atoC RNA: a 94-nucleotide RNA sequence from Desulfuromonas sp. AOP6. A search with the family's covariance model found it, with a score of 54 bits. The family's RNA type in Rfam is cis-regulatory element.
RNA sequence: CGUAUAAUAAAAACAGAUACAAGAUUUGGGAGACCUGGGAAGGUUUCCCUGUUUGCCCUGGACGACUCGCCCUCCUGGUCUCCAGGGUGUUUUU
Numbered sequence: 001c002g003u004a005u006a007a008u009a010a011a012a013a014c015a016g017a018u019a020c021a022a023g024a025u026u027u028g029g030g031a032g033a034c035c036u037g038g039g040a041a042g043g044u045u046u047c048c049c050u051g052u053u054u055g056c057c058c059u060g061g062a063c064g065a066c067u068c069g070c071c072c073u074c075c076u077g078g079u080c081u082c083c084a085g086g087g088u089g090u091u092u093u094u
Base pairs, nucleotide, nucleotide: 030047031046032045033044034043035042036041055088056087057086058085059084060083061082064080065079066078067077